[Rfam]
The family of this 202-nucleotide RNA sequence from Paraburkholderia caballeronis is "Burkholderia sRNA 11". NCBI's taxonomy places the organism under Bacteria, Pseudomonadota, Burkholderiales, Burkholderiaceae, Paraburkholderia. Identified by RNA-seq, RACE and Northern blot. Strongly expressed in biofilm. Identified in as ncRNA13. By type it is a small RNA. The family's consensus secondary structure was predicted with RNAfold.
RNA sequence: UCCCUCUCGCCAGGCGCCAGGCUUGUGCGGGAAUCGAUGGCCGCUAUCAUAGCGAGCCUUCAGGGCUGAACGCGCGGUCCGUGUCGAUCACGGCAUGUCGCAUGCGAUGACGCAAGCCGGUCGACGGCAAACGUCACCGCCGCCCGAAUGCGCCGAGCGCGCACGAAAAAAGGCCUUCAUCCGACGAUGAAGGCCUUUUACU
Numbered sequence: 001u002c003c004c005u006c007u008c009g010c011c012a013g014g015c016g017c018c019a020g021g022c023u024u025g026u027g028c029g030g031g032a033a034u035c036g037a038u039g040g041c042c043g044c045u046a047u048c049a050u051a052g053c054g055a056g057c058c059u060u061c062a063g064g065g066c067u068g069a070a071c072g073c074g075c076g077g078u079c080c081g082u083g084u085c086g087a088u089c090a091c092g093g094c095a096u097g098u099c100g101c102a103u104g105c106g107a108u109g110a111c112g113c114a115a116g117c118c119g120g121u122c123g124a125c126g127g128c129a130a131a132c133g134u135c136a137c138c139g140c141c142g143c144c145c146g147a148a149u150g151c152g153c154c155g156a157g158c159g160c161g162c163a164c165g166a167a168a169a170a171a172g173g174c175c176u177u178c179a180u181c182c183g184a185c186g187a188u189g190a191a192g193g194c195c196u197u198u199u200a201c202u
Stems, first nucleotide, its partner, number of pairs: 003036001005032006013024002039058003042054004063145004072101003075097001079093005104140003109135004116128004150162004168199014